[Rfam]
Nucleotides: 084
Base pairs, nucleotide, nucleotide: 001084002083003082004081005080006079007078
Number, partner (000 for none) and nucleotide at each position: 001084u002083g003082g004081c005080a006079a007078c008000u009000a010000u011000g012000a013000u014000g015000a016000a017000a018000g019000a020000u021000u022000c023000a024000g025000u026000c027000u028000g029000u030000a031000u032000g033000u034000a035000a036000u037000g038000u039000c040000u041000u042000g043000u044000u045000a046000c047000u048000a049000a050000a051000u052000g053000a054000a055000g056000a057000c058000a059000a060000c061000a062000g063000u064000c065000c066000c067000u068000c069000u070000a071000a072000a073000c074000u075000g076000a077000u078007g079006u080005u081004g082003c083002c084001a